[Rfam]
RNA sequence: CGGUGUGAGGGGGCCGUACCUCAUGCAGAGUGUUGGUGGAAUUUGUGUGCGGCUGCAUAGUGUGCGGCCUCCCCACACAGU
Numbered sequence: 001c002g003g004u005g006u007g008a009g010g011g012g013g014c015c016g017u018a019c020c021u022c023a024u025g026c027a028g029a030g031u032g033u034u035g036g037u038g039g040a041a042u043u044u045g046u047g048u049g050c051g052g053c054u055g056c057a058u059a060g061u062g063u064g065c066g067g068c069c070u071c072c073c074c075a076c077a078c079a080g081u
Stems, first nucleotide, its partner, number of pairs: 003078005009072011021060001023058005
Shown here is an 81-nucleotide RNA sequence from Ornithorhynchus anatinus, a member of the family "mir-1421 microRNA precursor family". Rfam's curators put it in the seed alignment.